The family of this 107-nucleotide sequence from Sporolactobacillus laevolacticus is "SAM riboswitch aptamer (S box leader)". The match comes from Rfam's covariance-model search (87 bits).
[Rfam]
Nucleotides: 107
Stems, first nucleotide, its partner, number of pairs: 001107008013041001015040002021031003025076001027074002042068004047064002050060002072099001077096006
Number, partner (000 for none) and nucleotide at each position: 001107u002106u003105c004104u005103u006102a007101u008100c009000c010000a011000g012000a013041g014000u015040g016039g017000c018000g019000g020000a021031g022030g023029g024000a025076c026000u027074g028073g029023c030022c031021c032000g033000a034000u035000g036000a037000a038000a039016c040015c041013c042068g043067g044066c045065a046000a047064c048063c049000c050060a051059a052000a053000u054000g055000u056000a057000a058000a059051u060050u061000u062000a063048g064047g065045u066044g067043c068042c069000a070000a071000u072099u073028c074027c075000u076025g077096c078095a079094g080093a081092a082091u083000c084000c085000g086000u087000u088000u089000g090000g091082a092081u093080u094079u095078u096077g097000a098000g099072a100008g101007a102006u103005a104004a105003g106002a107001g